[Rfam]
RNA sequence: CCAGUUACCUCUGGCAUGCUGAGGUGUAGUACAGAAAAUCCUUGGCUGCACAUUGCAGAGGUCCUGG
Numbered sequence: 001c002c003a004g005u006u007a008c009c010u011c012u013g014g015c016a017u018g019c020u021g022a023g024g025u026g027u028a029g030u031a032c033a034g035a036a037a038a039u040c041c042u043u044g045g046c047u048g049c050a051c052a053u054u055g056c057a058g059a060g061g062u063c064c065u066g067g
Base pairs, nucleotide, nucleotide: 001067002066003065004064007062008061009060010059011058014056015055016054019045020044021043022042023041024040026032027031